L17-Actino-Proteobacteria ribosomal protein leader: a 58-nucleotide RNA from Thermocatellispora tengchongensis. It is annotated as a cis-regulatory leader. It scores 58 bits against the family's covariance model. The organism belongs to Thermocatellispora, within Bacteria.
RNA sequence: CGGUCGUGCGACCGCGCGCCCGCCGGCCCGACUCCGGUACCUGAUACGGCCGGGGCGG
Numbered sequence: 001c002g003g004u005c006g007u008g009c010g011a012c013c014g015c016g017c018g019c020c021c022g023c024c025g026g027c028c029c030g031a032c033u034c035c036g037g038u039a040c041c042u043g044a045u046a047c048g049g050c051c052g053g054g055g056c057g058g
Base pairs, nucleotide, nucleotide: 001022002021003020005018006017007016008015009014028058029057030056032055033054034053035052036051037050038049